[Rfam]
RNA sequence: AUGGAGUAUCCGUAAAGCUCAGGAGGGAUAGCGCCACGAGUAACAGCGGUGGUGUGGUGGCGCUGUCUAUCCUGAGUUUUAUGGGUUCUUCGU
Numbered sequence: 001a002u003g004g005a006g007u008a009u010c011c012g013u014a015a016a017g018c019u020c021a022g023g024a025g026g027g028a029u030a031g032c033g034c035c036a037c038g039a040g041u042a043a044c045a046g047c048g049g050u051g052g053u054g055u056g057g058u059g060g061c062g063c064u065g066u067c068u069a070u071c072c073u074g075a076g077u078u079u080u081a082u083g084g085g086u087u088c089u090u091c092g093u
Stems, first nucleotide, its partner, number of pairs: 010084001016078009026068012